[Rfam]
Glycine riboswitch aptamer: a 91-nucleotide RNA from Pigmentiphaga aceris. Rfam's curators write: This family represents the bacterial glycine riboswitch. Glycine riboswitches usually consist of two metabolite-binding aptamers domains with similar structures in tandem. The aptamers cooperatively bind glycine to regulate the expression of downstream genes. In Bacillus subtilis, this riboswitch is found upstream of the gcvT operon which controls glycine degradation.

RNA sequence: AGCUUCUCUGCGGGAGAGCGGCGUGCAGCAGCACGCCCACCGAAGGCGCAAACUCCCAUCAUCGCUCAGGUAAACGGACCGCAGAAAUAGA
Numbered sequence: 001a002g003c004u005u006c007u008c009u010g011c012g013g014g015a016g017a018g019c020g021g022c023g024u025g026c027a028g029c030a031g032c033a034c035g036c037c038c039a040c041c042g043a044a045g046g047c048g049c050a051a052a053c054u055c056c057c058a059u060c061a062u063c064g065c066u067c068a069g070g071u072a073a074a075c076g077g078a079c080c081g082c083a084g085a086a087a088u089a090g091a
Stems, first nucleotide, its partner, number of pairs: 007085007020037004039071003042067002046065003052059001